[Rfam]
RNA sequence: GUGCAGAUGGCAGCGCCAUUUUCUGAGCUAUAACACUCUCAAUGUCAUAGCUCUUUGAAUGGUACUACCAUAUGUGC
Numbered sequence: 001g002u003g004c005a006g007a008u009g010g011c012a013g014c015g016c017c018a019u020u021u022u023c024u025g026a027g028c029u030a031u032a033a034c035a036c037u038c039u040c041a042a043u044g045u046c047a048u049a050g051c052u053c054u055u056u057g058a059a060u061g062g063u064a065c066u067a068c069c070a071u072a073u074g075u076g077c
Stems, first nucleotide, its partner, number of pairs: 002076003007071003012066002015063007025053007